[Rfam]
RNA sequence: GCAGACACACUCUGUUCUUUGCUGCUCUCUCCAGCCGAGGACUUUUUCUGUCUGCUACAUGGACAUGCAGAAUGUAACACUUUGCCUGCUUACUAUAGUGCUGGUGCCACUAUGUUCUGCUACAUUACG
Numbered sequence: 001g002c003a004g005a006c007a008c009a010c011u012c013u014g015u016u017c018u019u020u021g022c023u024g025c026u027c028u029c030u031c032c033a034g035c036c037g038a039g040g041a042c043u044u045u046u047u048c049u050g051u052c053u054g055c056u057a058c059a060u061g062g063a064c065a066u067g068c069a070g071a072a073u074g075u076a077a078c079a080c081u082u083u084g085c086c087u088g089c090u091u092a093c094u095a096u097a098g099u100g101c102u103g104g105u106g107c108c109a110c111u112a113u114g115u116u117c118u119g120c121u122a123c124a125u126u127a128c129g
Stems, first nucleotide, its partner, number of pairs: 001055006014042006022034003067120005072113002074110002078106002082103001084101002
This 129-nucleotide RNA from Channa argus belongs to the Rfam family "Small nucleolar RNA SNORA77".
On this family, see Schattner et al., RNA 2006: "A computational screen for mammalian pseudouridylation guide H/ACA RNAs".
From the family's description: ACA63 (SNORA77) is a member of the H/ACA class of snoRNAs that guide the sites of modification of uridines to pseudouridines. This snoRNA was identified by computational screening and its expression in mouse experimentally verified by Northern blot and primer extension analysis. ACA63 is proposed to guide the pseudouridylation of 18S rRNA U814.
It scores 54 bits against the family's covariance model.
Rfam classes the family as an H/ACA-box small nucleolar RNA.
Gene Ontology terms of the family: nucleolus and RNA processing.
Taxonomically the source falls in Channa (Eukaryota, Teleostomi, Eurypterygia, Channidae).
Pairs were carried over by alignment from the consensus structure, which was predicted with RNAalifold.